[Rfam]
RNA sequence: UCUUCAUUGAUGAUUGAUACAGUGACUUUCGUUCUUCUGAGUCUGCUGAAGCUAAUCUUUCUGUCCUGAGAAGA
Numbered sequence: 001u002c003u004u005c006a007u008u009g010a011u012g013a014u015u016g017a018u019a020c021a022g023u024g025a026c027u028u029u030c031g032u033u034c035u036u037c038u039g040a041g042u043c044u045g046c047u048g049a050a051g052c053u054a055a056u057c058u059u060u061c062u063g064u065c066c067u068g069a070g071a072a073g074a
Stems, first nucleotide, its partner, number of pairs: 001074003005070001